This 110-nucleotide RNA from Mycobacterium parascrofulaceum belongs to the Rfam family "SAM (S-adenosyl methionine) riboswitch aptamer". The base pairs follow the family's consensus structure, which is taken from published work. SAM-IV is a mRNA element that regulates gene expression via direct sensing of S-adenosylmethionine (SAM or AdoMet). For this family Rfam cites "The aptamer core of SAM-IV riboswitches mimics the ligand-binding site of SAM-I riboswitches" (Weinberg et al., RNA, 2008).
[Rfam]
Nucleotides: 110
Stems, first nucleotide, its partner, number of pairs: 001074004009040001012038006022031002041061003046058001048056001078098002081096004086091001
Number, partner (000 for none) and nucleotide at each position: 001074c002073u003072u004071c005000a006000u007000g008000a009040g010000u011000c012038g013037c014036c015035g016034u017033c018000g019000c020000c021000a022031a023030g024000c025000u026000c027000c028000g029000a030023c031022u032000c033017g034016a035015c036014g037013g038012c039000g040009c041061g042060c043059c044000a045000a046058c047000c048056c049000c050000a051000c052000g053000c054000u055000c056048g057000u058046g059043g060042g061041c062000u063000c064000c065000g066000a067000c068000g069000a070000c071004g072003a073002a074001g075000c076000g077000u078098c079097c080000u081096g082095g083094c084093a085000c086091c087000g088000g089000c090000c091086g092000u093084u094083g095082c096081c097079g098078g099000c100000a101000c102000g103000a104000g105000c106000g107000c108000c109000c110000c